Description: Rfam assigns this 76-nucleotide RNA sequence from Anolis carolinensis to the family "mir-193 microRNA precursor family". Gene Ontology terms of the family: miRNA-mediated post-transcriptional gene silencing and RISC complex.

[Rfam]
RNA sequence: GUCUGGGCCUGGGUCUUUGCGGGCGAGAUGAGAAGUUUCCUGCCUUCAACUGGCCUACAAAGUCCCAGUCCUCGGC
Number, nucleotide and partner (000 for none) at each position: 001g000002u000003c074004u000005g072006g071007g070008c000009c000010u067011g066012g065013g064014u000015c062016u061017u060018u059019g058020c000021g056022g055023g054024c053025g000026a051027g050028a000029u048030g047031a000032g000033a000034a000035g000036u000037u000038u000039c000040c000041u000042g000043c000044c000045u000046u000047c030048a029049a000050c027051u026052g000053g024054c023055c022056u021057a000058c019059a018060a017061a016062g015063u000064c013065c012066c011067a010068g000069u000070c007071c006072u005073c000074g003075g000076c000